[Rfam]
RNA sequence: AAUCGCCGUGACGACUCGGAAAAUUCAAGCUCAACAGACCGUAUUGCAGGUCUCUCUCCGCUGAGAUUGUUACUUGCAUGUCGAUUCACCCGCUGAACUGAGCGAUU
Numbered sequence: 001a002a003u004c005g006c007c008g009u010g011a012c013g014a015c016u017c018g019g020a021a022a023a024u025u026c027a028a029g030c031u032c033a034a035c036a037g038a039c040c041g042u043a044u045u046g047c048a049g050g051u052c053u054c055u056c057u058c059c060g061c062u063g064a065g066a067u068u069g070u071u072a073c074u075u076g077c078a079u080g081u082c083g084a085u086u087c088a089c090c091c092g093c094u095g096a097a098c099u100g101a102g103c104g105a106u107u
Base pairs, nucleotide, nucleotide: 001107002106003105004104005103006102